[Rfam]
The record is a 117-nucleotide RNA sequence from Daphnia pulex, which matches "U4atac minor spliceosomal RNA" in Rfam. About the family: U4atac is an essential component of the minor U12-type spliceosome complex which is required for removal of the rarer class of eukaryotic introns (AT-AC, U12-type). The family has 61 seed sequences and 1,648 matches in Rfam 15.1. Gene Ontology terms of the family: U4atac snRNP, pre-mRNA 5'-splice site binding and mRNA 5'-splice site recognition. A search with the family's covariance model found it, with a score of 66 bits.

RNA sequence: UUUGUCCUUAUCAAGUGGGAGGCCAAUACUCAAUGAACGUAUGGUGAGAGUAUUGCUGCUGAAACCAUUAUAAAUCAACGUACCCGGCAAUAUGUCCGCGGUACAAUUUUUGGAAAG
Numbered sequence: 001u002u003u004g005u006c007c008u009u010a011u012c013a014a015g016u017g018g019g020a021g022g023c024c025a026a027u028a029c030u031c032a033a034u035g036a037a038c039g040u041a042u043g044g045u046g047a048g049a050g051u052a053u054u055g056c057u058g059c060u061g062a063a064a065c066c067a068u069u070a071u072a073a074a075u076c077a078a079c080g081u082a083c084c085c086g087g088c089a090a091u092a093u094g095u096c097c098g099c100g101g102u103a104c105a106a107u108u109u110u111u112g113g114a115a116a117g
Stems, first nucleotide, its partner, number of pairs: 005020004009015001021059001025054007037045002080104005085098001088094002